[Rfam]
RNA sequence: CUACUGUUAUCGCGAGAUAUCAGGAUGGGGCAAUAGAAGUCAGCCGAGGCCAUAGUAGGUUGAUAACCGUCAACUGAAGGGC
Numbered sequence: 001c002u003a004c005u006g007u008u009a010u011c012g013c014g015a016g017a018u019a020u021c022a023g024g025a026u027g028g029g030g031c032a033a034u035a036g037a038a039g040u041c042a043g044c045c046g047a048g049g050c051c052a053u054a055g056u057a058g059g060u061u062g063a064u065a066a067c068c069g070u071c072a073a074c075u076g077a078a079g080g081g082c
Stems, first nucleotide, its partner, number of pairs: 001027001004023003008019004040047002049082003058075006

Shown here is an 82-nucleotide RNA sequence from Paraglaciecola sp. MB-3u-78, a member of the family "Group II catalytic intron D1-D4-1". Group II introns are found in rRNA, tRNA and mRNA of organelles in fungi, plants and protists, and also in mRNA in bacteria. The pairing is the family consensus, mapped onto this sequence. A search with the family's covariance model found it, with a score of 66 bits. NCBI's taxonomy places the organism under Bacteria, Gammaproteobacteria, Alteromonadales, Alteromonadaceae, Paraglaciecola.